Shown here is an 81-nucleotide RNA sequence from Physcomitrium patens, a member of the family "MIR535 microRNA precursor family". Rfam 15.1 lists 544 matches to the family in 108 species. On this family, see Zeng et al., Nucleic Acids Res 2010: "Conservation and divergence of microRNAs and their functions in Euphorbiaceous plants". Its family is annotated with RISC complex and miRNA-mediated post-transcriptional gene silencing in the Gene Ontology. The sequence is in the family's curated seed alignment.
RNA sequence: GUGACAACGAGAGAGAGCACGCUGGAAUGCACUCUUGUAAGAAGCAUGGGUAUGUUCUUGUGUGCCCUCUCCCGCUGUCGC
Numbered sequence: 001g002u003g004a005c006a007a008c009g010a011g012a013g014a015g016a017g018c019a020c021g022c023u024g025g026a027a028u029g030c031a032c033u034c035u036u037g038u039a040a041g042a043a044g045c046a047u048g049g050g051u052a053u054g055u056u057c058u059u060g061u062g063u064g065c066c067c068u069c070u071c072c073c074g075c076u077g078u079c080g081c
Base pairs, nucleotide, nucleotide: 002080003079004078005077006076008074009073012070013069015067017065018064019063020062021061022060024058025057026056